[Rfam]
RNA sequence: GGGGAGAGUCUUAGAAUCCCCGUGGGCGUCGUGUAAAUAGCGUCCGUCUUUGGCCGGACGGCGUGGUUUGUGAAUC
Numbered sequence: 001g002g003g004g005a006g007a008g009u010c011u012u013a014g015a016a017u018c019c020c021c022g023u024g025g026g027c028g029u030c031g032u033g034u035a036a037a038u039a040g041c042g043u044c045c046g047u048c049u050u051u052g053g054c055c056g057g058a059c060g061g062c063g064u065g066g067u068u069u070g071u072g073a074a075u076c
Base pairs, nucleotide, nucleotide: 001021002020003019004018005017034070035069036068037067038066040064041063042062044061045060046059047058048057049056
RNA: L13-Bacteroidia ribosomal protein leader